[Rfam]
RNA sequence: ACUGCUACUGUAAACAUCCUUGACUGGAAGCUGUAAGGUGUUGGAGCUUUCAGUCGGAUGUUUACAGCAGCAGG
Numbered sequence: 001a002c003u004g005c006u007a008c009u010g011u012a013a014a015c016a017u018c019c020u021u022g023a024c025u026g027g028a029a030g031c032u033g034u035a036a037g038g039u040g041u042u043g044g045a046g047c048u049u050u051c052a053g054u055c056g057g058a059u060g061u062u063u064a065c066a067g068c069a070g071c072a073g074g
Stems, first nucleotide, its partner, number of pairs: 002073005008067012023054010

Record summary:
mir-30 microRNA precursor family: a 74-nucleotide sequence from Anhinga rufa. The literature on the family includes a 2001 paper in Science by Lagos-Quintana et al., "Identification of novel genes coding for small expressed RNAs". Rfam describes the family as follows. This family consists of the mammalian microRNA (miRNA) precursor mir-30a. The organism belongs to Anhinga, within Eukaryota. A search with the family's covariance model found it, with a score of 79 bits.